[Rfam]
RNA sequence: CAACACAUUCCGCGAGGGAUGUCUGAGGAUUCGAGAAGUCAGCAGAGGCCACAGUACUCCCAGAGAAUGUUCGGAGGAAGGUUCGGGAAGGAAGGGC
Numbered sequence: 001c002a003a004c005a006c007a008u009u010c011c012g013c014g015a016g017g018g019a020u021g022u023c024u025g026a027g028g029a030u031u032c033g034a035g036a037a038g039u040c041a042g043c044a045g046a047g048g049c050c051a052c053a054g055u056a057c058u059c060c061c062a063g064a065g066a067a068u069g070u071u072c073g074g075a076g077g078a079a080g081g082u083u084c085g086g087g088a089a090g091g092a093a094g095g096g097c
Base pairs, nucleotide, nucleotide: 001025002024005022006021007020008019009018010017011016039046040045048097049096050095057090058089060087061086
The family of this 97-nucleotide RNA is "Group II catalytic intron D1-D4-1". It scores 56 bits against the family's covariance model.